[Rfam]
RNA sequence: ACGACCUUACUUGAACAGGAUCUGUUCUAUAGGAUCGUACUACUAUUCCCUUAAGUAAUAAGGAGACUAGUCAACAAGUCUGGUGGAUGAAAAAUAAUCCUUUGACCAGAGCGUGAUUGACUGAUAAAUUGGGUUUCAAUCAAAUCUGUAGAUGAUCGUUCUCAGAUAUUGGGUUUACCCAUUCUGUGAAGGUCUUGGGGUUUUCUGACAGACU
Numbered sequence: 001a002c003g004a005c006c007u008u009a010c011u012u013g014a015a016c017a018g019g020a021u022c023u024g025u026u027c028u029a030u031a032g033g034a035u036c037g038u039a040c041u042a043c044u045a046u047u048c049c050c051u052u053a054a055g056u057a058a059u060a061a062g063g064a065g066a067c068u069a070g071u072c073a074a075c076a077a078g079u080c081u082g083g084u085g086g087a088u089g090a091a092a093a094a095u096a097a098u099c100c101u102u103u104g105a106c107c108a109g110a111g112c113g114u115g116a117u118u119g120a121c122u123g124a125u126a127a128a129u130u131g132g133g134u135u136u137c138a139a140u141c142a143a144a145u146c147u148g149u150a151g152a153u154g155a156u157c158g159u160u161c162u163c164a165g166a167u168a169u170u171g172g173g174u175u176u177a178c179c180c181a182u183u184c185u186g187u188g189a190a191g192g193u194c195u196u197g198g199g200g201u202u203u204u205c206u207g208a209c210a211g212a213c214u
Base pairs, nucleotide, nucleotide: 001038002037003035005033006032007031013027014026015025016024017023018022046066049063050062051061052060053059078213079212080211081210082209097201098200099199100198101197104194105193106192107191110160111159112158113157120149121148123146124145125144130139131136163186164185165184166183168182169181171179172178
The family of this 214-nucleotide RNA sequence from Zostera marina is "Plant small nucleolar RNA U3".
The family is grouped with related families in Rfam's "U3 clan".
Gene Ontology terms of the family: RNA processing and nucleolus.
Rfam's curators write: Small nucleolar RNAs (snoRNAs) are involved in the processing and modification of rRNA in the nucleolus. There are two main classes of snoRNAs: the box C/D class, and the box H/ACA class. U3 snoRNA is a member of the box C/D class. Indeed, the box C/D element is a subset of the six short sequence elements found in all U3 snoRNAs, namely boxes A, A', B, C, C', and D. The U3 snoRNA secondary structure is characterised by a small 5' domain (with boxes A and A'), and a larger 3' domain (with boxes B, C, C', and D), the two domains being linked by a single-stranded hinge.
The literature on the family includes a 1997 paper in Nucleic Acids Res by Zwieb, "The uRNA database".
The family's RNA type in Rfam is C/D-box small nucleolar RNA.
The family has 24 seed sequences and 3,759 matches in Rfam 15.1.
A search with the family's covariance model found it, with a score of 151 bits.